Annotation:
This 161-nucleotide RNA from Triticum aestivum belongs to the Rfam family "U1 spliceosomal RNA". U1 is a small nuclear RNA (snRNA) component of the spliceosome (involved in pre-mRNA splicing). NCBI's taxonomy places the organism under Eukaryota, Streptophytina, Spermatophyta, Magnoliopsida, Triticum. On this family, see Pomeranz Krummel et al., Nature 2009: "Crystal structure of human spliceosomal U1 snRNP at 5.5 A resolution".
RNA sequence: AUACUUACCUGGACGGGGUCUAUGGCUGAUCAAGAAGAGCCCUGGCCUAGGCUAGUGGCCCAUAUUGCACUUUGUGGGUGUGCUGGCUUACCAUCUCCCCUUUGAGGGAGAGUGGACGUCAUAAUUUGUGAUAGAGGGGGUACGCGUUCGCGCGGCCCCUG
Numbered sequence: 001a002u003a004c005u006u007a008c009c010u011g012g013a014c015g016g017g018g019u020c021u022a023u024g025g026c027u028g029a030u031c032a033a034g035a036a037g038a039g040c041c042c043u044g045g046c047c048u049a050g051g052c053u054a055g056u057g058g059c060c061c062a063u064a065u066u067g068c069a070c071u072u073u074g075u076g077g078g079u080g081u082g083c084u085g086g087c088u089u090a091c092c093a094u095c096u097c098c099c100c101u102u103u104g105a106g107g108g109a110g111a112g113u114g115g116a117c118g119u120c121a122u123a124a125u126u127u128g129u130g131a132u133a134g135a136g137g138g139g140g141u142a143c144g145c146g147u148u149c150g151c152g153c154g155g156c157c158c159c160u161g
Stems, first nucleotide, its partner, number of pairs: 012120004016048005024041004049089003053086001055083003060078002062075002091115003094111003098107002136160005143154004